[Rfam]
RNA: Bacterial RNase P class A
RNA sequence: UCAGACGGCCGGGCGGUCGCGGCGGGGACUUGUCCCCGUCGAGGAAAGUCCGGGCUCCACGGUGAAAAGGCGGCGGAUAACUUCCGCCCGGGGCGACCCGAGGGAUAGCGCCACAGAAAGCAAACCGCCGCCCGUUCGCGGGCGGCAAGGGUGAAAGGGUGGGGUAAGAGCCCACCGCGGCCUCGGCAACGCGGCCGGCAUGGCAAGCCCCGCCUGGAGCAAGACCGAAUAGGGGCGUCGCGCGAAGUUCGCUUCGCAGGGCUCACCGCCCGAGGCGCCCGGGUAGGUCGCGAGAACCGGUCAGCGAUGGCCGGUCCAGAGGAAUGAUCGUCGCCGUCCUAAGACUUCGGUUUUGGGGCGGAACAGAACCCGGCUUACAGGCCGUCUGACGCC
Numbered sequence: 001u002c003a004g005a006c007g008g009c010c011g012g013g014c015g016g017u018c019g020c021g022g023c024g025g026g027g028a029c030u031u032g033u034c035c036c037c038g039u040c041g042a043g044g045a046a047a048g049u050c051c052g053g054g055c056u057c058c059a060c061g062g063u064g065a066a067a068a069g070g071c072g073g074c075g076g077a078u079a080a081c082u083u084c085c086g087c088c089c090g091g092g093g094c095g096a097c098c099c100g101a102g103g104g105a106u107a108g109c110g111c112c113a114c115a116g117a118a119a120g121c122a123a124a125c126c127g128c129c130g131c132c133c134g135u136u137c138g139c140g141g142g143c144g145g146c147a148a149g150g151g152u153g154a155a156a157g158g159g160u161g162g163g164g165u166a167a168g169a170g171c172c173c174a175c176c177g178c179g180g181c182c183u184c185g186g187c188a189a190c191g192c193g194g195c196c197g198g199c200a201u202g203g204c205a206a207g208c209c210c211c212g213c214c215u216g217g218a219g220c221a222a223g224a225c226c227g228a229a230u231a232g233g234g235g236c237g238u239c240g241c242g243c244g245a246a247g248u249u250c251g252c253u254u255c256g257c258a259g260g261g262c263u264c265a266c267c268g269c270c271c272g273a274g275g276c277g278c279c280c281g282g283g284u285a286g287g288u289c290g291c292g293a294g295a296a297c298c299g300g301u302c303a304g305c306g307a308u309g310g311c312c313g314g315u316c317c318a319g320a321g322g323a324a325u326g327a328u329c330g331u332c333g334c335c336g337u338c339c340u341a342a343g344a345c346u347u348c349g350g351u352u353u354u355g356g357g358g359c360g361g362a363a364c365a366g367a368a369c370c371c372g373g374c375u376u377a378c379a380g381g382c383c384g385u386c387u388g389a390c391g392c393c
Stems, first nucleotide, its partner, number of pairs: 001389010011378001012332007020041009046376003050373005055219004064266001068215005073087005088102001089100004103210002108208002110204003125150002127146008158176006177199001178197005184191002223289004233280006259271004296315008